The family of this 290-nucleotide sequence from Trichonephila inaurata is "Nuclear RNase P". Taxonomically the source falls in Trichonephila inaurata (Eukaryota, Chelicerata, Araneomorphae, Entelegynae). A reference for the family is Brown (1999), "The Ribonuclease P Database", Nucleic Acids Res. A search with the family's covariance model found it, with a score of 80 bits. The base pairs follow the family's consensus structure, which is taken from published work.
RNA sequence: UGUGGGGAAUUUACAUAAGGGGAUACGAUCGUGUAUUUAUUGCACCAUUUGCCCUUGGGAAGGUCUAAGAUGACGCCGCCUUUCGAGGAGGUCCGAGAUGGGCUCAUGUUCAAUUAGCGGGACGGGCAAAGAGAAAGCUCGUGUCUUGCGGUUUUGGUUGCGAAUGAAGCUCUCUCUGCUGACGCUCUCCUGCCGCAUUGAUUUGGGAUAUGCUCGUGGCAGGAAUGUCAAAACUGGAUAUGCAAAGUGACAUUUAUGGUGUAACACAAUUCAGACUACUCCCUCACACA
Numbered sequence: 001u002g003u004g005g006g007g008a009a010u011u012u013a014c015a016u017a018a019g020g021g022g023a024u025a026c027g028a029u030c031g032u033g034u035a036u037u038u039a040u041u042g043c044a045c046c047a048u049u050u051g052c053c054c055u056u057g058g059g060a061a062g063g064u065c066u067a068a069g070a071u072g073a074c075g076c077c078g079c080c081u082u083u084c085g086a087g088g089a090g091g092u093c094c095g096a097g098a099u100g101g102g103c104u105c106a107u108g109u110u111c112a113a114u115u116a117g118c119g120g121g122a123c124g125g126g127c128a129a130a131g132a133g134a135a136a137g138c139u140c141g142u143g144u145c146u147u148g149c150g151g152u153u154u155u156g157g158u159u160g161c162g163a164a165u166g167a168a169g170c171u172c173u174c175u176c177u178g179c180u181g182a183c184g185c186u187c188u189c190c191u192g193c194c195g196c197a198u199u200g201a202u203u204u205g206g207g208a209u210a211u212g213c214u215c216g217u218g219g220c221a222g223g224a225a226u227g228u229c230a231a232a233a234c235u236g237g238a239u240a241u242g243c244a245a246a247g248u249g250a251c252a253u254u255u256a257u258g259g260u261g262u263a264a265c266a267c268a269a270u271u272c273a274g275a276c277u278a279c280u281c282c283c284u285c286a287c288a289c290a
Base pairs, nucleotide, nucleotide: 001290002289003288004287005284006283007282012258013257015255018056019055020054021053022052031045032044033043034042035041065274066273068271069270075220076219077218090104091103092102093101094100105121107119108118109117110116122217123216124215125214126213127212128211143202144201145200